Description
The family of this 83-nucleotide sequence from Ananas comosus is "MIR528 microRNA precursor family". The source organism's lineage runs through Eukaryota, Liliopsida, Bromeliaceae, Bromelioideae and Ananas. Its family is annotated with RISC complex and miRNA-mediated post-transcriptional gene silencing in the Gene Ontology.
RNA sequence: GUGGAAGGGGCAUGCAGAGGAGUGGAAAUGAUCAGAUGAUGAUUCCUGGGCCUUCUUUAACUCCUGUGCUUGCCUCUUCCACC
Numbered sequence: 001g002u003g004g005a006a007g008g009g010g011c012a013u014g015c016a017g018a019g020g021a022g023u024g025g026a027a028a029u030g031a032u033c034a035g036a037u038g039a040u041g042a043u044u045c046c047u048g049g050g051c052c053u054u055c056u057u058u059a060a061c062u063c064c065u066g067u068g069c070u071u072g073c074c075u076c077u078u079c080c081a082c083c
Stems, first nucleotide, its partner, number of pairs: 001082012014069003018065005